RNA sequence: GUUUGUUCCGGGACUCUGACUGUGAAAUUGUGUUGUUUUUAAUGUACCACAUCACAGGCAGAGUUCUAGCUACGCGC
Numbered sequence: 001g002u003u004u005g006u007u008c009c010g011g012g013a014c015u016c017u018g019a020c021u022g023u024g025a026a027a028u029u030g031u032g033u034u035g036u037u038u039u040u041a042a043u044g045u046a047c048c049a050c051a052u053c054a055c056a057g058g059c060a061g062a063g064u065u066c067u068a069g070c071u072a073c074g075c076g077c
Base pairs, nucleotide, nucleotide: 004074005073006072008069010067011066012065013064014063015062016061020057021056022055023054024053025052030050031049032048
Annotation:
This 77-nucleotide sequence from Agrilus planipennis belongs to the Rfam family "mir-11 microRNA precursor family". It scores 50 bits against the family's covariance model. The family has 20 seed sequences and 138 matches in Rfam 15.1. Its family is annotated with RISC complex, cellular response to gamma radiation and negative regulation of apoptotic process in the Gene Ontology. Taxonomically the source falls in Agrilus (Eukaryota, Neuropteroidea, Polyphaga, Buprestidae). A reference for the family is Skalsky et al. (2010), "Identification of microRNAs expressed in two mosquito vectors, Aedes albopictus and Culex quinquefasciatus", BMC Genomics.